[Rfam]
RNA sequence: GGUCAGUGAUGAGCAGUAAAAGGUCUGAUUACCCACAAUCCUCCCCCGGCCGCCCUCUGGCUCCCAGCAGCCCCUGUUCUGUGCUCCCAGCAUCCUCCAGUAAAGCGAUGUUGGUCCCAGAGCAGCUGCUGACAAGAAACAGGAUGUGACAUCAUAGCGUGGGCCUGUACCGAGUUCCUACUGGCUCACAGUGAUGACAUCACAUCCGACAUGACCAAUCAGCACGGAGCGUCAGGGUCAGGUGGUGGGAGGGUAGGGCGCUGAUCUCAAGUUUUCAACCUGAGGCC
Number, nucleotide and partner (000 for none) at each position: 001g287002g286003u285004c284005a000006g000007u000008g000009a000010u000011g000012a000013g000014c000015a000016g000017u000018a000019a000020a000021a000022g000023g000024u000025c000026u000027g000028a000029u000030u000031a000032c000033c000034c000035a000036c000037a000038a265039u264040c263041c000042u000043c244044c000045c242046c241047c000048g239049g238050c237051c000052g000053c000054c000055c000056u000057c000058u000059g000060g000061c229062u228063c227064c226065c131066a130067g129068c128069a127070g126071c125072c000073c000074c000075u000076g000077u000078u000079c000080u000081g000082u000083g000084c000085u000086c000087c114088c113089a112090g111091c110092a109093u108094c107095c105096u000097c000098c000099a000100g000101u000102a000103a000104a000105g095106c000107g094108a093109u092110g091111u090112u089113g088114g087115u000116c000117c000118c000119a000120g000121a000122g000123c000124a000125g071126c070127u069128g068129c067130u066131g065132a000133c000134a000135a000136g000137a000138a000139a000140c000141a000142g207143g206144a205145u204146g203147u202148g201149a000150c000151a000152u000153c000154a000155u000156a000157g000158c000159g189160u188161g187162g186163g185164c184165c183166u000167g181168u180169a000170c000171c000172g000173a000174g000175u000176u000177c000178c000179u000180a168181c167182u000183g165184g164185c163186u162187c161188a160189c159190a000191g000192u000193g000194a000195u000196g000197a000198c000199a000200u000201c148202a147203c146204a145205u144206c143207c142208g000209a000210c000211a000212u000213g000214a000215c000216c000217a000218a000219u000220c000221a000222g000223c000224a000225c000226g064227g063228a062229g061230c000231g000232u000233c000234a000235g000236g000237g050238u049239c048240a000241g046242g045243u000244g043245g000246u000247g000248g000249g000250a000251g000252g000253g000254u000255a000256g000257g000258g000259c000260g000261c000262u000263g040264a039265u038266c000267u000268c000269a000270a000271g000272u000273u000274u000275u000276c000277a000278a000279c000280c000281u000282g000283a000284g004285g003286c002287c001